[Rfam]
RNA sequence: UUAUUGCGUUAAGGAUUGUAAUGACAUCCUUUUUUUUGUUGCAGUAAUGCAAAAAAAAGAUAGAAUGAAAAGCCUGCCCUUUU
Numbered sequence: 001u002u003a004u005u006g007c008g009u010u011a012a013g014g015a016u017u018g019u020a021a022u023g024a025c026a027u028c029c030u031u032u033u034u035u036u037u038g039u040u041g042c043a044g045u046a047a048u049g050c051a052a053a054a055a056a057a058a059g060a061u062a063g064a065a066u067g068a069a070a071a072g073c074c075u076g077c078c079c080u081u082u083u
Base pairs, nucleotide, nucleotide: 012075013074014073016071017070021066022065026061027060028059032056033055034054035053036052037051038050039049

Notes: The family of this 83-nucleotide RNA from Aurantibacter aestuarii is "Flavo-1 RNA". The family's consensus secondary structure is taken from published work.